[Rfam]
RNA sequence: UAACCUUGCCUGUGAGGGUAAGCUGAACGUACAGAAGUCAGCAGAGGCCAUAGUACGCAGGCUGUUGCAACGGUCUGCGGAAGGGC
Numbered sequence: 001u002a003a004c005c006u007u008g009c010c011u012g013u014g015a016g017g018g019u020a021a022g023c024u025g026a027a028c029g030u031a032c033a034g035a036a037g038u039c040a041g042c043a044g045a046g047g048c049c050a051u052a053g054u055a056c057g058c059a060g061g062c063u064g065u066u067g068c069a070a071c072g073g074u075c076u077g078c079g080g081a082a083g084g085g086c
Stems, first nucleotide, its partner, number of pairs: 001025002005022007038045002047086003056079008
Group II catalytic intron D1-D4-1: an 86-nucleotide RNA from Paenibacillaceae bacterium GAS479. Gene Ontology term of the family: Group II intron splicing. A search with the family's covariance model found it, with a score of 71 bits.